TPP riboswitch aptamer (THI element): a 106-nucleotide sequence from Rhizobiales bacterium GAS113.
[Rfam]
RNA sequence: CAAAUCACCAGGGGGAGCCGUGUGCGGCUGAGAGGUCCCGGCUACGGGACGACCCCUAGAACCUGAUCCGGGUCAUGCCGGCGUAGGAAUGGGGUCGAUCCAUGUC
Numbered sequence: 001c002a003a004a005u006c007a008c009c010a011g012g013g014g015g016a017g018c019c020g021u022g023u024g025c026g027g028c029u030g031a032g033a034g035g036u037c038c039c040g041g042c043u044a045c046g047g048g049a050c051g052a053c054c055c056c057u058a059g060a061a062c063c064u065g066a067u068c069c070g071g072g073u074c075a076u077g078c079c080g081g082c083g084u085a086g087g088a089a090u091g092g093g094g095u096c097g098a099u100c101c102a103u104g105u106c
Stems, first nucleotide, its partner, number of pairs: 006094001008092003011056004017028004035050005062087004068081004
The base pairs follow the family's consensus structure, which is taken from published work. A search with the family's covariance model found it, with a score of 76 bits.